[Rfam]
RNA sequence: GGGUACCGGACCCCGAGGAACACAGGGGCGAGGGCGGGGAACCCACGUUCCCUUACAGGCAGGGAAGCGGAACCGGCCGGAAACGACCGAUUCCUUGGGGUGAAGCCCCGGUGCACCACCCGGUGUGCCAGGGCCGGACGGCCUCUCAGUCCGAACCCGACAGCUCACCUCGCAGGCGCGUACGAGAGGAAGA
Number, nucleotide and partner (000 for none) at each position: 001g000002g000003g000004u178005a000006c176007c175008g000009g000010a000011c033012c032013c000014c000015g000016a000017g000018g000019a000020a000021c000022a000023c000024a000025g000026g000027g000028g000029c000030g000031a000032g012033g011034g173035c172036g171037g170038g169039g168040a000041a000042c000043c000044c097045a096046c000047g000048u000049u000050c000051c000052c000053u000054u000055a000056c000057a000058g000059g000060c000061a000062g000063g000064g000065a000066a000067g000068c000069g000070g000071a000072a000073c000074c000075g000076g000077c000078c000079g000080g000081a000082a000083a000084c000085g000086a000087c000088c000089g000090a000091u000092u000093c000094c000095u000096u045097g044098g158099g157100g156101u000102g000103a000104a000105g000106c133107c132108c131109c000110g000111g000112u000113g000114c000115a000116c000117c000118a000119c000120c000121c000122g000123g000124u000125g000126u000127g000128c000129c000130a000131g108132g107133g106134c000135c000136g152137g151138a150139c149140g000141g000142c000143c000144u000145c000146u000147c000148a000149g139150u138151c137152c136153g000154a000155a000156c100157c099158c098159g000160a000161c000162a000163g000164c000165u000166c000167a000168c039169c038170u037171c036172g035173c034174a000175g007176g006177c000178g004179c000180g000181u000182a000183c000184g000185a000186g000187a000188g000189g000190a000191a000192g000193a000

A member of the RNA family "c-di-AMP riboswitch aptamer (ydaO/yuaA leader)" from Nocardia macrotermitis, 193 nucleotides long. The pairing is the family consensus, mapped onto this sequence. Gene Ontology terms of the family: cyclic-di-AMP binding and regulation of gene expression. The match comes from Rfam's covariance-model search (48 bits). The source organism's lineage runs through Bacteria, Bacillati, Mycobacteriales, Nocardiaceae and Nocardia.